[Rfam]
RNA: mir-181 microRNA precursor family
Organism: Dipodomys ordii
RNA sequence: GGAAUCCAUGGAACAUUCAACGCUGUCGGUGAGUUUGGGAAUUAAAAAAGAAACCACCGACCGUUGACUGUACCUUGGUAUCC
Numbered sequence: 001g002g003a004a005u006c007c008a009u010g011g012a013a014c015a016u017u018c019a020a021c022g023c024u025g026u027c028g029g030u031g032a033g034u035u036u037g038g039g040a041a042u043u044a045a046a047a048a049a050g051a052a053a054c055c056a057c058c059g060a061c062c063g064u065u066g067a068c069u070g071u072a073c074c075u076u077g078g079u080a081u082c083c
Base pairs, nucleotide, nucleotide: 001083002082003081004079005078006077008075014070015069017067018066019065020064021063022062025061026060027059028058029057030056031055033054034053035052036051